[Rfam]
RNA sequence: GAUUGCCAUCGGUAUCUGAUGCCAUGACUCGUAUCUACAUAGCUUGGUAUCUCGUAUAAAUGGCAGAAAUCGAAGGGUUUUGAACAGGUCUUGCGACACUGGCCGCCUCUUUCUGGGCUCCCAGUUACUGAAUCCCUGUUGACAUUU
Numbered sequence: 001g002a003u004u005g006c007c008a009u010c011g012g013u014a015u016c017u018g019a020u021g022c023c024a025u026g027a028c029u030c031g032u033a034u035c036u037a038c039a040u041a042g043c044u045u046g047g048u049a050u051c052u053c054g055u056a057u058a059a060a061u062g063g064c065a066g067a068a069a070u071c072g073a074a075g076g077g078u079u080u081u082g083a084a085c086a087g088g089u090c091u092u093g094c095g096a097c098a099c100u101g102g103c104c105g106c107c108u109c110u111u112u113c114u115g116g117g118c119u120c121c122c123a124g125u126u127a128c129u130g131a132a133u134c135c136c137u138g139u140u141g142a143c144a145u146u147u
Base pairs, nucleotide, nucleotide: 004065005064006063007062008061009060018051019050020049021048022047023046024045026043028042029041031040083140084139085138086137087136098125099124100123101122102121105118106117107116
Annotation
This 147-nucleotide RNA from Colocasia esculenta belongs to the Rfam family "Small nucleolar RNA F1/F2/snoR5a". Rfam's curators write: This family contains F1, F2 and snoR5a sequences, all of which are members of the the H/ACA class of snoRNA that guide the sites of modification of uridines to pseudouridines. The family's RNA type in Rfam is H/ACA-box small nucleolar RNA. Lineage of the source: Eukaryota > Streptophyta > Liliopsida > Aroideae > Colocasia. Its family is annotated with nucleolus and RNA processing in the Gene Ontology. Rfam 15.1 lists 325 matches to the family in 97 species.